[Rfam]
RNA sequence: ACUACGGAGAGUUUGAUCCUAGCUCAGGACGAACGCUGGCGGCAGGCUUAACACAUGCAAGUCGCACGAGAACGUUCUGGCUUUGCCAGGACAAGUACAGUGGCGGACGGGUGCGUAUCGCGUAGAUAACCUGCCCUCAGGCGCGGGACAAUCACGGGAAACCGUGGCUAAUACCGCACGUCGUCUGGAUCCCGCAUGGGGACCAGAUGAAAGCCUUCGGGCGCCUUUGGAUGGGUCUGCGUUGGAUUAGCUUGUUGGUGAGGUAACGGCUCACCAAGGCAACGAUCCAUAGCUGGUCUGAGAGGACGAUCAGCCACACUGGGACUGAGACACGGCCCAGACUCCUACGGGAGGCAGCAGUGGGGAAUCUUGCACAAUGGGGUCACCCCUGAUGCAGCCAUGCCGCGUGGAGGAAGACACCCCUAUGGGGCGUAAACUCCUUUUCUGAAUGAAGAAACCCCUGUAGCUUCAGGGCGCGACGGUAGUUCAGGAAUAAGCACCGGCUAACUCCGUGCCAGCAGCCGCGGUAAUACGGAGGGUGCAAGCGUUGUCCGGAAUCACUG
Dot-bracket structure: ........(((((.......))))).((((.((((((.(((((((((....(((.(((..(((..((..(....(((((((...)))))))....)...)))))......(((......((((((((..((...((..(((.((((.....((((((....))))))......)))).....((((((..(((....)))..))))))....(((....))).)))..))..))))))))))(((....(((..((((((((.......)))))))))))......)))..((((((((....))))...))))))).(((((............))))).((((....))))...)))))).).....(.(((...(((((....))))).)))).)).))))))..((((.......(((.....)))......))))....((((((...(.....(((.........))).....)....))))))......(((((......(((((.....((....)).......)))))))))).))))))))))..........

Shown here is a 563-nucleotide part of an RNA from Salinibacter ruber, a member of the family "Bacterial small subunit ribosomal RNA". The base pairs follow the family's consensus structure, which is taken from published work. For this family Rfam cites "The comparative RNA web (CRW) site: an online database of comparative sequence and structure information for ribosomal, intron, and other RNAs" (Cannone et al., BMC Bioinformatics, 2002). The source organism's lineage runs through Bacteria, Rhodothermota, Rhodothermales, Salinibacteraceae and Salinibacter ruber. Rfam's curators put it in the seed alignment.